[Rfam]
RNA sequence: GAGAGCUUAAAGAGUAAAGCACUUGGUGUCGAAACAAGGCAAGACUUCCAGGUGCUUUUCUCA
Numbered sequence: 001g002a003g004a005g006c007u008u009a010a011a012g013a014g015u016a017a018a019g020c021a022c023u024u025g026g027u028g029u030c031g032a033a034a035c036a037a038g039g040c041a042a043g044a045c046u047u048c049c050a051g052g053u054g055c056u057u058u059u060c061u062c063a
Stems, first nucleotide, its partner, number of pairs: 016058005023051004028045003